Source information: A member of the RNA family "mraW RNA" from Actinokineospora alba, 109 nucleotides long. Lineage of the source: Bacteria > Bacillati > Actinomycetota > Actinomycetes > Actinokineospora. It scores 60 bits against the family's covariance model. The family's RNA type in Rfam is cis-regulatory element.

Nucleotides: 109
Base pairs, nucleotide, nucleotide: 010096011095012094013093014092015091018088019087021085022084023083025081026080027079028078029077030076031075032074037072038071039070040069042067043066044065045064046063047062048061049060
Number, partner (000 for none) and nucleotide at each position: 001000g002000g003000a004000c005000g006000c007000g008000g009000g010096u011095g012094c013093c014092g015091u016000g017000a018088g019087g020000c021085c022084u023083c024000g025081g026080u027079c028078c029077g030076c031075u032074c033000g034000c035000u036000u037072u038071c039070g040069g041000c042067c043066c044065u045064g046063g047062c048061g049060c050000a051000c052000c053000u054000u055000c056000c057000c058000c059000g060049g061048u062047g063046c064045c065044a066043g067042g068000u069040u070039c071038g072037a073000c074032g075031a076030g077029c078028g079027g080026g081025c082000g083023g084022g085021g086000a087019c088018c089000u090000g091015g092014c093013g094012g095011c096010a097000c098000c099000c100000g101000g102000c103000c104000u105000u106000u107000u108000g109000g